[Rfam]
RNA sequence: UAUCUUCCCAAGCAGGGGAAGUGCCAUGAUCAUGAAGAUGGUUUUCUGAAGGUGAGGCCCACCCAUUCCACUCUGGGUGUGCUGCCCCCUGCAAUUUCUCCAAAUAUGGAAAGCUGGGUUGUAUAAUUUGUAGUAGGCAGAAGCCAAAUAUCACUAGAACAAAAAUAUGUUUCUAU
Number, nucleotide and partner (000 for none) at each position: 001u000002a000003u000004c000005u000006u000007c000008c000009c000010a000011a000012g122013c121014a120015g119016g000017g047018g046019a045020a044021g043022u000023g042024c041025c040026a039027u038028g000029a000030u000031c000032a000033u000034g000035a000036a000037g000038a027039u026040g025041g024042u023043u021044u020045u019046c018047u017048g000049a090050a000051g088052g087053u000054g086055a000056g083057g082058c081059c000060c079061a078062c077063c076064c075065a000066u000067u000068c000069c000070a000071c000072u000073c000074u000075g064076g063077g062078u061079g060080u000081g058082c057083u056084g000085c000086c054087c052088c051089c000090u049091g000092c117093a000094a115095u113096u111097u110098c000099u109100c108101c000102a000103a000104a000105u000106a000107u000108g100109g099110a097111a096112a000113g095114c000115u094116g000117g092118g000119u015120u014121g013122u012123a000124u000125a000126a000127u000128u000129u000130g000131u000132a000133g000134u000135a000136g000137g000138c000139a174140g173141a172142a171143g170144c169145c000146a000147a000148a000149u000150a000151u000152c000153a000154c000155u000156a000157g000158a000159a000160c000161a000162a000163a000164a000165a000166u000167a000168u000169g144170u143171u142172u141173c140174u139175a000176u000
This 176-nucleotide sequence from Pogona vitticeps belongs to the Rfam family "U1 spliceosomal RNA". The family is grouped with related families in Rfam's "U1 clan". From the family's description: U1 is a small nuclear RNA (snRNA) component of the spliceosome (involved in pre-mRNA splicing). A search with the family's covariance model found it, with a score of 77 bits. It is annotated as a spliceosomal small nuclear RNA.